A member of the RNA family "Purine riboswitch aptamer" from Clostridium intestinale, 98 nucleotides long. For this family Rfam cites "Structure of a natural guanine-responsive riboswitch complexed with the metabolite hypoxanthine" (Batey et al., Nature, 2004). Riboswitches are metabolite binding domains within certain messenger RNAs that serve as precision sensors for their corresponding targets. Rfam links the family to the GO term purine nucleobase biosynthetic process. Pairs were carried over by alignment from the consensus structure, which is taken from published work.
RNA sequence: AUAAUUUCAAAACAGAUUACUCGUAUAUACCUAGGAUAUGGCUAGGAGUAUCUACCAGAAACCUUAAAUUUCUGACUAUGAGUGAAUUAAUGUGUAUU
Numbered sequence: 001a002u003a004a005u006u007u008c009a010a011a012a013c014a015g016a017u018u019a020c021u022c023g024u025a026u027a028u029a030c031c032u033a034g035g036a037u038a039u040g041g042c043u044a045g046g047a048g049u050a051u052c053u054a055c056c057a058g059a060a061a062c063c064u065u066a067a068a069u070u071u072c073u074g075a076c077u078a079u080g081a082g083u084g085a086a087u088u089a090a091u092g093u094g095u096a097u098u
Base pairs, nucleotide, nucleotide: 018084019083020082021081022080023079024078025077030046031045032044033043034042056074057073058072059071060070061069